[Rfam]
RNA sequence: ACACGGGAAAGGAGGUGGUUCGAGAAAUGAUUUCUUCGAGGACGCGUGAGGUGGCUGCCGGUUAAGCGCCACCGCUGCUGACGGAUUCUCGUCCCGCGCGAGCGCCGAGCCAAUCCCAGGCAGCCACCCGACCCCCGAGCCCCCGAUGAGUCCGAUCGGGGAACAGCGUGAGAACUUGGUCUCCGCGGUUCAAGGCUCGGGGGUCGUUCCGG
Numbered sequence: 001a002c003a004c005g006g007g008a009a010a011g012g013a014g015g016u017g018g019u020u021c022g023a024g025a026a027a028u029g030a031u032u033u034c035u036u037c038g039a040g041g042a043c044g045c046g047u048g049a050g051g052u053g054g055c056u057g058c059c060g061g062u063u064a065a066g067c068g069c070c071a072c073c074g075c076u077g078c079u080g081a082c083g084g085a086u087u088c089u090c091g092u093c094c095c096g097c098g099c100g101a102g103c104g105c106c107g108a109g110c111c112a113a114u115c116c117c118a119g120g121c122a123g124c125c126a127c128c129c130g131a132c133c134c135c136c137g138a139g140c141c142c143c144c145g146a147u148g149a150g151u152c153c154g155a156u157c158g159g160g161g162a163a164c165a166g167c168g169u170g171a172g173a174a175c176u177u178g179g180u181c182u183c184c185g186c187g188g189u190u191c192a193a194g195g196c197u198c199g200g201g202g203g204u205c206g207u208u209c210c211g212g
Base pairs, nucleotide, nucleotide: 014059015058016057017056018055019054060111061110062109063108066105068103069102073098074097075096129206130205131204132203133202134201135200136199137198138197139196140195141194142160143159144158145157146156147155
Description
The family of this 212-nucleotide sequence from Nocardia pseudobrasiliensis is "Actinobacteria sRNA Ms_IGR-5". Taxonomically the source falls in Nocardia (Bacteria, Bacillati, Actinomycetota, Nocardiaceae). It is annotated as a small RNA.